The family of this 118-nucleotide RNA from Atlantibacter hermannii is "Insertion sequence IS1222 ribosomal frameshifting element". The literature on the family includes a 2004 paper in J Bacteriol by Mejlhede et al., "-1 frameshifting at a CGA AAG hexanucleotide site is required for transposition of insertion sequence IS1222". The family's RNA type in Rfam is frameshift element. This family represents the insertion sequence IS1222 ribosomal frameshifting element. It scores 126 bits against the family's covariance model. Taxonomically the source falls in Atlantibacter hermannii (Bacteria, Pseudomonadati, Enterobacterales, Enterobacteriaceae).

RNA sequence: GGCACUUCAGGUGGCUCUGGGGCGAAAGUACUGACGACAGGCCAGAAGCGGGAAGCUGUUGUAGUGAUGUGUGAAGCGACGGGUCUGUCGCAACGUCGAGCCUGCAGGCUGGCUGGUU
Numbered sequence: 001g002g003c004a005c006u007u008c009a010g011g012u013g014g015c016u017c018u019g020g021g022g023c024g025a026a027a028g029u030a031c032u033g034a035c036g037a038c039a040g041g042c043c044a045g046a047a048g049c050g051g052g053a054a055g056c057u058g059u060u061g062u063a064g065u066g067a068u069g070u071g072u073g074a075a076g077c078g079a080c081g082g083g084u085c086u087g088u089c090g091c092a093a094c095g096u097c098g099a100g101c102c103u104g105c106a107g108g109c110u111g112g113c114u115g116g117u118u
Base pairs, nucleotide, nucleotide: 035090036089037088038087039086040085041084042083043082048059049058050057051056065078066077